[Rfam]
RNA sequence: GGAUCGAUGAUGACACCCCAAAAAACAUUCCUUGGGAAAGCUGAACAAAAUGAGUAAAAACUGAACUGUCGUUCUCAUCGUAACUGAGGUCA
Numbered sequence: 001g002g003a004u005c006g007a008u009g010a011u012g013a014c015a016c017c018c019c020a021a022a023a024a025a026c027a028u029u030c031c032u033u034g035g036g037a038a039a040g041c042u043g044a045a046c047a048a049a050a051u052g053a054g055u056a057a058a059a060a061c062u063g064a065a066c067u068g069u070c071g072u073u074c075u076c077a078u079c080g081u082a083a084c085u086g087a088g089g090u091c092a
Stems, first nucleotide, its partner, number of pairs: 002091004027055004032048003
Background:
A member of the RNA family "Small nucleolar RNA SNORD116" from Chinchilla lanigera, 92 nucleotides long. It is annotated as a C/D-box small nucleolar RNA. Pairs were carried over by alignment from the consensus structure, which was predicted with PFOLD. The organism belongs to Chinchilla, within Eukaryota. A search with the family's covariance model found it, with a score of 80 bits. For this family Rfam cites "Identification of brain-specific and imprinted small nucleolar RNA genes exhibiting an unusual genomic organization" (Cavaille et al., Proc Natl Acad Sci U S A, 2000).